[Rfam]
RNA sequence: GGGAGAUGCUUCUAGGGUUCCGAUUCAAUUCCUGAGUAUUGAAUGGCUGGUCCGAGAGAAGCAGGCUGAUCAGUAAUACUGCCGAUCGAUUGCAGUAUUACAGCGCUCAGCUACACGGCGGGAUAAAAGCCCGGGAGAU
Numbered sequence: 001g002g003g004a005g006a007u008g009c010u011u012c013u014a015g016g017g018u019u020c021c022g023a024u025u026c027a028a029u030u031c032c033u034g035a036g037u038a039u040u041g042a043a044u045g046g047c048u049g050g051u052c053c054g055a056g057a058g059a060a061g062c063a064g065g066c067u068g069a070u071c072a073g074u075a076a077u078a079c080u081g082c083c084g085a086u087c088g089a090u091u092g093c094a095g096u097a098u099u100a101c102a103g104c105g106c107u108c109a110g111c112u113a114c115a116c117g118g119c120g121g122g123a124u125a126a127a128a129g130c131c132c133g134g135g136a137g138a139u
Stems, first nucleotide, its partner, number of pairs: 007063006015053002020050002022047001023044006064112006071105001114134001116137001120132003
This 139-nucleotide sequence from Leptolyngbya sp. FACHB-16 belongs to the Rfam family "Guanidine-I riboswitch aptamer". A search with the family's covariance model found it, with a score of 85 bits. The source organism's lineage runs through Bacteria, Cyanophyceae, Leptolyngbyales, Leptolyngbyaceae and Leptolyngbya. The pairing is the family consensus, mapped onto this sequence.